[Rfam]
Rfam assigns this 137-nucleotide RNA from Labeo rohita to the family "Small nucleolar RNA SNORA68".
The family has 26 seed sequences and 1,079 matches in Rfam 15.1.
Rfam describes the family as follows. U68 is a member of the H/ACA class of small nucleolar RNAs (snoRNAs) which act as guides in the the modification of uridines to pseudouridines.
A reference for the family is Ganot et al. (1997), "The family of box ACA small nucleolar RNAs is defined by an evolutionarily conserved secondary structure and ubiquitous sequence elements essential for RNA accumulation", Genes Dev.

RNA sequence: CCUGCACACAAAAACCCAAGGGCCAUUUCCUUUCCAUGUUAUGCUCUUGCCGUGUGUGCAAAAAGAAACACAGAACCUUGUCGCCUUUCAUAGGCUUUCAAACGUGCCACUGAAAGUGAAUUCAAGGUGCAACACAA
Numbered sequence: 001c002c003u004g005c006a007c008a009c010a011a012a013a014a015c016c017c018a019a020g021g022g023c024c025a026u027u028u029c030c031u032u033u034c035c036a037u038g039u040u041a042u043g044c045u046c047u048u049g050c051c052g053u054g055u056g057u058g059c060a061a062a063a064a065g066a067a068a069c070a071c072a073g074a075a076c077c078u079u080g081u082c083g084c085c086u087u088u089c090a091u092a093g094g095c096u097u098u099c100a101a102a103c104g105u106g107c108c109a110c111u112g113a114a115a116g117u118g119a120a121u122u123c124a125a126g127g128u129g130c131a132a133c134a135c136a137a
Base pairs, nucleotide, nucleotide: 003060004059005058006057007056008055009054021046022045024043025042026041029038073130075128076127077126078125079124085116086115087114088113089112090111093108094107095106